[Rfam]
RNA: Bacterial large subunit ribosomal RNA, nucleotides 32 to 630
Organism: Brucella abortus
RNA sequence: CCUUGGCAUGCACAGGCGAUGAAGGACGUGAUACGCUGCGAUAAGCGUCGGGGAGGUGCGAAUACCCUUUGAUCCGACGAUUUCCGAAUGGGGCAACCCACCUUAGAUGACUAGAAAAUCUGUUUUGUUGGAGCAACGCUGGAUGGGUUUACACCCAUACAGACCGCUAGGUCGUCGGCCCAUGUGGGCCGCCCCCGCGGAGCGCCAGCAUUCCUCUGGAAUGCGUACGGCGCGUGAGCGAGAACAGCACAGCUUUCUAGUCAUCAUAAAUAAGGUAUCUAACCUUGAAUACAUAGGGGUUAGAAGCGAACCUGGGGAACUGAAACAUCUAAGUACCCAGAGGAAAGGACAUCAAACGAGACUCCGCUAGUAGUGGCGAGCGAACGCGGACCAGGCCAGUGGCUUUUGUGAAUAAAGUGGAACGAGUUGGAAAACUCGACCGAAGUGGGUGAUAGUCCCGUACACGUAGAAUAGCAGAAGUCCUUGAGUAGGGCGGGACACGUGAAAUCCUGUCUGAACAUGGGUCGACCACGAUCCAAGCCUAAGUACUCGUGCAUGACCGAUAGCGAACCAGUACCGUGAGGGAAAGGUGAAAAGCA
Numbered sequence: 001c002c003u004u005g006g007c008a009u010g011c012a013c014a015g016g017c018g019a020u021g022a023a024g025g026a027c028g029u030g031a032u033a034c035g036c037u038g039c040g041a042u043a044a045g046c047g048u049c050g051g052g053g054a055g056g057u058g059c060g061a062a063u064a065c066c067c068u069u070u071g072a073u074c075c076g077a078c079g080a081u082u083u084c085c086g087a088a089u090g091g092g093g094c095a096a097c098c099c100a101c102c103u104u105a106g107a108u109g110a111c112u113a114g115a116a117a118a119u120c121u122g123u124u125u126u127g128u129u130g131g132a133g134c135a136a137c138g139c140u141g142g143a144u145g146g147g148u149u150u151a152c153a154c155c156c157a158u159a160c161a162g163a164c165c166g167c168u169a170g171g172u173c174g175u176c177g178g179c180c181c182a183u184g185u186g187g188g189c190c191g192c193c194c195c196c197g198c199g200g201a202g203c204g205c206c207a208g209c210a211u212u213c214c215u216c217u218g219g220a221a222u223g224c225g226u227a228c229g230g231c232g233c234g235u236g237a238g239c240g241a242g243a244a245c246a247g248c249a250c251a252g253c254u255u256u257c258u259a260g261u262c263a264u265c266a267u268a269a270a271u272a273a274g275g276u277a278u279c280u281a282a283c284c285u286u287g288a289a290u291a292c293a294u295a296g297g298g299g300u301u302a303g304a305a306g307c308g309a310a311c312c313u314g315g316g317g318a319a320c321u322g323a324a325a326c327a328u329c330u331a332a333g334u335a336c337c338c339a340g341a342g343g344a345a346a347g348g349a350c351a352u353c354a355a356a357c358g359a360g361a362c363u364c365c366g367c368u369a370g371u372a373g374u375g376g377c378g379a380g381c382g383a384a385c386g387c388g389g390a391c392c393a394g395g396c397c398a399g400u401g402g403c404u405u406u407u408g409u410g411a412a413u414a415a416a417g418u419g420g421a422a423c424g425a426g427u428u429g430g431a432a433a434a435c436u437c438g439a440c441c442g443a444a445g446u447g448g449g450u451g452a453u454a455g456u457c458c459c460g461u462a463c464a465c466g467u468a469g470a471a472u473a474g475c476a477g478a479a480g481u482c483c484u485u486g487a488g489u490a491g492g493g494c495g496g497g498a499c500a501c502g503u504g505a506a507a508u509c510c511u512g513u514c515u516g517a518a519c520a521u522g523g524g525u526c527g528a529c530c531a532c533g534a535u536c537c538a539a540g541c542c543u544a545a546g547u548a549c550u551c552g553u554g555c556a557u558g559a560c561c562g563a564u565a566g567c568g569a570a571c572c573a574g575u576a577c578c579g580u581g582a583g584g585g586a587a588a589g590g591u592g593a594a595a596a597g598c599a
Stems, first nucleotide, its partner, number of pairs: 001590002005561002007558007014550002016307002024085003027040003046079007055067002090099003100276006278304009311342001312340005322329002352359002362546001363390005373381002393543004401484002404479005417465003423438005441445001447459003491515008522537005577584002
Dot-bracket structure: ((..(((((((((((((......((((((........))).....(((((((..((.........)).....)))))))...)))....(((....)))((((((.....................................................................................................................................................................)))))).(((((((((.........))))))))).))...((((((.....((....))......))))).).........((....))..((((((.....((.....))....)))))..((((....((.(((((........(((...(((((......)))))..(...).(((.......)))...))).........)))))...))......((((((((.........))))))))......(((((......)))))..))))..)..)).))))))).))...............((....))....)).........